RNA: RydC RNA
RNA sequence: CUUCCGAUGUUGGCCCAUAAACUUCACCUGCACUAUGGGCCUGAUUACGUGCAGGUGUUUUCUU
Numbered sequence: 001c002u003u004c005c006g007a008u009g010u011u012g013g014c015c016c017a018u019a020a021a022c023u024u025c026a027c028c029u030g031c032a033c034u035a036u037g038g039g040c041c042u043g044a045u046u047a048c049g050u051g052c053a054g055g056u057g058u059u060u061u062c063u064u
Base pairs, nucleotide, nucleotide: 012041013040014039015038016037017036018035025057026056027055028054029053030052031051032050033049